[Rfam]
RNA sequence: GGUUGGCCCUUUUAAAGGGGGUUUCAAGAUUCGAUUACUUGGGUGGGUAGUC
Numbered sequence: 001g002g003u004u005g006g007c008c009c010u011u012u013u014a015a016a017g018g019g020g021g022u023u024u025c026a027a028g029a030u031u032c033g034a035u036u037a038c039u040u041g042g043g044u045g046g047g048u049a050g051u052c
Stems, first nucleotide, its partner, number of pairs: 003027003006022006033052007
The family of this 52-nucleotide RNA from Desulfocucumis palustris is "Na+ riboswitch aptamer (DUF1646)". Taxonomically the source falls in Desulfocucumis (Bacteria, Bacillati, Eubacteriales, Desulfocucumaceae). Its family is annotated with sodium ion binding and regulation of gene expression in the Gene Ontology. Pairs were carried over by alignment from the consensus structure, which is taken from published work. The literature on the family includes a 2022 paper in Nat Chem Biol by White et al., "Na(+) riboswitches regulate genes for diverse physiological processes in bacteria".